[Rfam]
Shown here is a 70-nucleotide sequence from Anguilla anguilla, a member of the family "mir-338 microRNA precursor family". On this family, see Chen et al., Genes Dev 2005: "The developmental miRNA profiles of zebrafish as determined by small RNA cloning".
RNA sequence: CUGGGAACAACAUCCUGAUGCUGUCUGAGUGAGAUGGCAAAAGCUCCAGCAUCAGUGAUUUUGUUGCGAG
Numbered sequence: 001c002u003g004g005g006a007a008c009a010a011c012a013u014c015c016u017g018a019u020g021c022u023g024u025c026u027g028a029g030u031g032a033g034a035u036g037g038c039a040a041a042a043g044c045u046c047c048a049g050c051a052u053c054a055g056u057g058a059u060u061u062u063g064u065u066g067c068g069a070g
Stems, first nucleotide, its partner, number of pairs: 006065005012059003015055009
Lineage of the source: Eukaryota > Chordata > Gnathostomata > Euteleostomi > Anguilla.